[Rfam]
RNA sequence: CUUGCAGCUAUGGUGACAUGGUUCCAAGCACCAUUGCAGGGAAGAUCUUUGGAUCCAUCUGUUCUCUAAGUGGGGUGCUGGUCAUCGCCCUUCCUGUACCUGUCAUUGUUUCCAAC
Numbered sequence: 001c002u003u004g005c006a007g008c009u010a011u012g013g014u015g016a017c018a019u020g021g022u023u024c025c026a027a028g029c030a031c032c033a034u035u036g037c038a039g040g041g042a043a044g045a046u047c048u049u050u051g052g053a054u055c056c057a058u059c060u061g062u063u064c065u066c067u068a069a070g071u072g073g074g075g076u077g078c079u080g081g082u083c084a085u086c087g088c089c090c091u092u093c094c095u096g097u098a099c100c101u102g103u104c105a106u107u108g109u110u111u112c113c114a115a116c
Base pairs, nucleotide, nucleotide: 002115004113007112010109011108012107013106015104016103017102018101020099023096039079040078042076051065052064053063

Background
The record is a 116-nucleotide RNA sequence from Pantherophis guttatus, which matches "Potassium channel RNA editing signal" in Rfam. From the family's description: This family represents a group of sequences related to the human potassium channel Kv1.1 hairpin element which directs the efficient modification of an adenosine to inosine by an adenosine deaminase acting on RNA (ADAR). The ADAR modification causes an isoleucine/valine recoding event which lies in the ion-conducting pore of the potassium channel. It is thought that this editing event targets the process of fast inactivation and allows a more rapid recovery from inactivation at negative potentials. Rfam classes the family as a cis-regulatory element. The source organism's lineage runs through Eukaryota, Euteleostomi, Sauropsida, Serpentes and Pantherophis. Rfam links the family to the GO term adenosine to inosine editing.